[Rfam]
RNA sequence: AAAAGCAUGCAAAUUCAAUAUAUUGCAGAGUUCACGUAGGCCU
Numbered sequence: 001a002a003a004a005g006c007a008u009g010c011a012a013a014u015u016c017a018a019u020a021u022a023u024u025g026c027a028g029a030g031u032u033c034a035c036g037u038a039g040g041c042c043u
Stems, first nucleotide, its partner, number of pairs: 004031001008027005
Dot-bracket structure: ...(...(((((..........)))))...)............
RNA: ES036 (CssrF) sRNA
Organism: Shigella flexneri